[Rfam]
RNA sequence: CUGCAUACCAGUAGACCUUAUCUGGUUCUUCUAAUAGCCAGAUGAGGGGGAUGGUGCAUGCUACAAAAACCUGGAGUUGCUGUAAGGCUGUUUUCAGCUGUGACGUGGCUGAUAGAACUGCAGUACUCCAACAUAU
Dot-bracket structure: ..((((.(.......(((((((((..............)))))))))........).))))...........((((.(..(((..........(((((.........))))).......)))..))))).......
Numbered sequence: 001c002u003g004c005a006u007a008c009c010a011g012u013a014g015a016c017c018u019u020a021u022c023u024g025g026u027u028c029u030u031c032u033a034a035u036a037g038c039c040a041g042a043u044g045a046g047g048g049g050g051a052u053g054g055u056g057c058a059u060g061c062u063a064c065a066a067a068a069a070c071c072u073g074g075a076g077u078u079g080c081u082g083u084a085a086g087g088c089u090g091u092u093u094u095c096a097g098c099u100g101u102g103a104c105g106u107g108g109c110u111g112a113u114a115g116a117a118c119u120g121c122a123g124u125a126c127u128c129c130a131a132c133a134u135a136u
Stems, first nucleotide, its partner, number of pairs: 003061004008056001016047009073129004078125001081122003094112005